RNA: Potassium channel RNA editing signal
Organism: Fasciola hepatica
RNA sequence: ACAGGUAUGGAGAUAUGGUUCCUUCUACGGUUAUUGGGAAAGUCGUUGGCAGUAUUUGUUCCCUGUGUGGAGUUCUGGUCAUUGCACUUCCAGUGCCGGUGAUUGUGUCCAAU
Numbered sequence: 001a002c003a004g005g006u007a008u009g010g011a012g013a014u015a016u017g018g019u020u021c022c023u024u025c026u027a028c029g030g031u032u033a034u035u036g037g038g039a040a041a042g043u044c045g046u047u048g049g050c051a052g053u054a055u056u057u058g059u060u061c062c063c064u065g066u067g068u069g070g071a072g073u074u075c076u077g078g079u080c081a082u083u084g085c086a087c088u089u090c091c092a093g094u095g096c097c098g099g100u101g102a103u104u105g106u107g108u109c110c111a112a113u
Stems, first nucleotide, its partner, number of pairs: 001113001004110002006107005013100002017096001020093001036076004048062002